Rfam assigns this 179-nucleotide RNA from Peribacillus faecalis to the family "Lysine riboswitch aptamer". The match comes from Rfam's covariance-model search (121 bits). The source organism's lineage runs through Bacteria, Bacillati, Bacillota, Bacilli and Peribacillus.

RNA sequence: AGAUGAGGUAGAGGUUGCGGUGUUUAAGAGUACAUAAACCGAGAGUCAGAAAACUCGAUGACGUUUGUUGAAAGGAACCACCGCCGAAGCGCUGCGAAUUUCUGGUCGCAGUAAGCUGGGACUGCAUCGAACAGGUGCAGGACUGUCAUAGCAUUUUGCUAUGGAGAACUAUCCAUCAA
Numbered sequence: 001a002g003a004u005g006a007g008g009u010a011g012a013g014g015u016u017g018c019g020g021u022g023u024u025u026a027a028g029a030g031u032a033c034a035u036a037a038a039c040c041g042a043g044a045g046u047c048a049g050a051a052a053a054c055u056c057g058a059u060g061a062c063g064u065u066u067g068u069u070g071a072a073a074g075g076a077a078c079c080a081c082c083g084c085c086g087a088a089g090c091g092c093u094g095c096g097a098a099u100u101u102c103u104g105g106u107c108g109c110a111g112u113a114a115g116c117u118g119g120g121a122c123u124g125c126a127u128c129g130a131a132c133a134g135g136u137g138c139a140g141g142a143c144u145g146u147c148a149u150a151g152c153a154u155u156u157u158g159c160u161a162u163g164g165a166g167a168a169c170u171a172u173c174c175a176u177c178a179a
Base pairs, nucleotide, nucleotide: 007173008172009171010170011169017084018083019082020081021080022079024077025076034068035067036066037065038064039063088117089116090115091112092111093110094109095108096107097106118144119143122140123139124138125137126136127135128134146164147163148162149161150160151159152158
The base pairs follow the family's consensus structure, which is taken from published work.